Rfam assigns this 87-nucleotide RNA from Myotis brandtii to the family "mir-9195 microRNA precursor family".
[Rfam]
RNA sequence: AGAGGCCCUCCGCAGCUGGGGUGAAACGCUUGCCUUGUUGCCGUGGCAACAAAGCAAGCAUUCCACCAGGCCGCUCACGGUGCCUGC
Numbered sequence: 001a002g003a004g005g006c007c008c009u010c011c012g013c014a015g016c017u018g019g020g021g022u023g024a025a026a027c028g029c030u031u032g033c034c035u036u037g038u039u040g041c042c043g044u045g046g047c048a049a050c051a052a053a054g055c056a057a058g059c060a061u062u063c064c065a066c067c068a069g070g071c072c073g074c075u076c077a078c079g080g081u082g083c084c085u086g087c
Stems, first nucleotide, its partner, number of pairs: 004084003012074002015071003020067004025062002028059006037050005

About this RNA: The family has 3 seed sequences and 438 matches in Rfam 15.1. NCBI's taxonomy places the organism under Eukaryota, Tetrapoda, Chiroptera, Yangochiroptera, Myotis. The match comes from Rfam's covariance-model search (92 bits).